[Rfam]
RAGATH-33 RNA: a 113-nucleotide sequence.
Pairs were carried over by alignment from the consensus structure, which is taken from published work.
RNA sequence: GCUAACGAUAGUUGAACAGACGGGUCGGGGCUAACAUAGAAAGGUUAGCAGGUAGUGCAGCGGUAGGUAACAAAUCCGCAAGUCGAAAUGAGUCGGGAAAUCCGAAUGAUACG
Numbered sequence: 001g002c003u004a005a006c007g008a009u010a011g012u013u014g015a016a017c018a019g020a021c022g023g024g025u026c027g028g029g030g031c032u033a034a035c036a037u038a039g040a041a042a043g044g045u046u047a048g049c050a051g052g053u054a055g056u057g058c059a060g061c062g063g064u065a066g067g068u069a070a071c072a073a074a075u076c077c078g079c080a081a082g083u084c085g086a087a088a089u090g091a092g093u094c095g096g097g098a099a100a101u102c103c104g105a106a107u108g109a110u111a112c113g
Stems, first nucleotide, its partner, number of pairs: 006027004011021003030049006093105004